Background:
This 135-nucleotide RNA sequence from Enterococcus cecorum belongs to the Rfam family "FMN riboswitch aptamer (RFN element)".

[Rfam]
RNA sequence: GUUCGUCUUCAGGGGCAGGGUGUAAUUCCCGACCGGUGGUGAUAGUCCACGACCUGUUCAGUGAGUUUGUUUAUUGGAUGGCUGAUCUGGUGAAAUUCCAGGACCGACAGUAUAGUCUGGAUAAAGAAGAUUGGC
Numbered sequence: 001g002u003u004c005g006u007c008u009u010c011a012g013g014g015g016c017a018g019g020g021u022g023u024a025a026u027u028c029c030c031g032a033c034c035g036g037u038g039g040u041g042a043u044a045g046u047c048c049a050c051g052a053c054c055u056g057u058u059c060a061g062u063g064a065g066u067u068u069g070u071u072u073a074u075u076g077g078a079u080g081g082c083u084g085a086u087c088u089g090g091u092g093a094a095a096u097u098c099c100a101g102g103a104c105c106g107a108c109a110g111u112a113u114a115g116u117c118u119g120g121a122u123a124a125a126g127a128a129g130a131u132u133g134g135c
Stems, first nucleotide, its partner, number of pairs: 003133001005131006018030003032116002034106002036050004045104002054081006086102005108119003

Description
Rfam describes the family as follows. The RFN element is a highly conserved domain that is found frequently in the 5'-untranslated regions of prokaryotic mRNAs that encode for flavin mononucleotide (FMN) biosynthesis and transport proteins. Rfam links the family to the GO term FMN binding.